Source information:
mir-981 microRNA precursor family: a 78-nucleotide RNA sequence from Diatraea saccharalis. Gene Ontology terms of the family: RISC complex and miRNA-mediated post-transcriptional gene silencing. It scores 75 bits against the family's covariance model. Lineage of the source: Eukaryota > Bilateria > Allotriocarida > Crambinae > Diatraea.
[Rfam]
RNA sequence: CCGUACAUAAUUCGGGUUUCGGGACGAUGGAACCGUACUAGUCUGGUUCGUUGUCGACGAAACCUGCAAAAUGUGCGG
Number, nucleotide and partner (000 for none) at each position: 001c078002c077003g076004u075005a074006c073007a000008u000009a000010a000011u000012u000013c066014g065015g064016g063017u062018u061019u060020c059021g058022g000023g000024a000025c000026g000027a000028u000029g000030g049031a048032a047033c046034c045035g000036u000037a000038c000039u000040a000041g000042u000043c000044u000045g034046g033047u032048u031049c030050g000051u000052u000053g000054u000055c000056g000057a000058c021059g020060a019061a018062a017063c016064c015065u014066g013067c000068a000069a000070a000071a000072u000073g006074u005075g004076c003077g002078g001